Plastid-rps12 3UTR RNA: a 97-nucleotide sequence from Protea cynaroides. Rfam describes the family as follows. Plastid rpl20 is a non-coding RNA (ncRNA) recognised in plastids. It was found in the three prime untranslated region (3UTR) of rps12 gene, its 3UTR location sugest a role in transcript maduration. The family's consensus secondary structure was predicted with LocARNA.
[Rfam]
RNA sequence: GGUUUUCGUUGGUGCAAACCCAAUCACCUUCAGUUGAGAUGAGAAGCAAUUCCCCAUUGAUAACAAAUGGUAAUCCAUCAAGAGGGGUAAAUCUCAU
Numbered sequence: 001g002g003u004u005u006u007c008g009u010u011g012g013u014g015c016a017a018a019c020c021c022a023a024u025c026a027c028c029u030u031c032a033g034u035u036g037a038g039a040u041g042a043g044a045a046g047c048a049a050u051u052c053c054c055c056a057u058u059g060a061u062a063a064c065a066a067a068u069g070g071u072a073a074u075c076c077a078u079c080a081a082g083a084g085g086g087g088u089a090a091a092u093c094u095c096a097u
Stems, first nucleotide, its partner, number of pairs: 009023004052087004056078002059075003063071002